RNA sequence: UUGUUAUCAAGAAAGGUGGAGGGAUUAGACCCAGUGAAACCUUAGCAACCCUUUAGCCGUAAAGAAGGUGCUACAUUCUACCCAUUUUGGGAUGGAUAACGU
Dot-bracket structure: .(((((((....(((((...(((..[[[[)))......)))))((((.((((((......))))..))))))...(]]]]((((...))))..)))))))).
Numbered sequence: 001u002u003g004u005u006a007u008c009a010a011g012a013a014a015g016g017u018g019g020a021g022g023g024a025u026u027a028g029a030c031c032c033a034g035u036g037a038a039a040c041c042u043u044a045g046c047a048a049c050c051c052u053u054u055a056g057c058c059g060u061a062a063a064g065a066a067g068g069u070g071c072u073a074c075a076u077u078c079u080a081c082c083c084a085u086u087u088u089g090g091g092a093u094g095g096a097u098a099a100c101g102u
Stems, first nucleotide, its partner, number of pairs: 002101007013043005021032003026080004044072004049068002051064004076094001081091004
Rfam assigns this 102-nucleotide RNA from Flagellimonas eckloniae to the family "SAM riboswitch aptamer (S box leader)". The match comes from Rfam's covariance-model search (77 bits). A reference for the family is Grundy and Henkin (1998), "The S box regulon: a new global transcription termination control system for methionine and cysteine biosynthesis genes in gram-positive bacteria", Mol Microbiol.